[Rfam]
RNA sequence: CAAGCAGUUGGAGAUGACAUUCCUCCCAAACCGCCUUUACCGGCUAAUGAUGUCUACGCAAUC
Numbered sequence: 001c002a003a004g005c006a007g008u009u010g011g012a013g014a015u016g017a018c019a020u021u022c023c024u025c026c027c028a029a030a031c032c033g034c035c036u037u038u039a040c041c042g043g044c045u046a047a048u049g050a051u052g053u054c055u056a057c058g059c060a061a062u063c
Stems, first nucleotide, its partner, number of pairs: 010026004016054006033044003

The family of this 63-nucleotide RNA sequence from Rouxiella badensis is "Fluoride riboswitch aptamer (crcB RNA motif)". Lineage of the source: Bacteria > Pseudomonadota > Gammaproteobacteria > Enterobacterales > Rouxiella.